[Rfam]
RNA sequence: AGGCCUGGAGAGAGAACCAGGGUCUGAUCCUCAGCCUUCGUGGCAGCUGCUGAUCAGCCUUUGCCUCUCUCUGUCUCUCUG
Number, nucleotide and partner (000 for none) at each position: 001a000002g000003g000004c000005c000006u000007g000008g000009a072010g071011a070012g069013a068014g067015a066016a000017c000018c063019a062020g061021g000022g059023u000024c057025u056026g055027a054028u053029c052030c000031u000032c049033a048034g047035c046036c000037u000038u000039c000040g000041u000042g000043g000044c000045a000046g035047c034048u033049g032050c000051u000052g029053a028054u027055c026056a025057g024058c000059c022060u000061u020062u019063g018064c000065c000066u015067c014068u013069c012070u011071c010072u009073g000074u000075c000076u000077c000078u000079c000080u000081g000

mir-574 microRNA precursor family: an 81-nucleotide RNA sequence from Myotis brandtii.
On this family, see Lui et al., Cancer Res 2007: "Patterns of known and novel small RNAs in human cervical cancer".
Pairs were carried over by alignment from the consensus structure, which was predicted with RNAalifold.
Gene Ontology terms of the family: RISC complex and miRNA-mediated post-transcriptional gene silencing.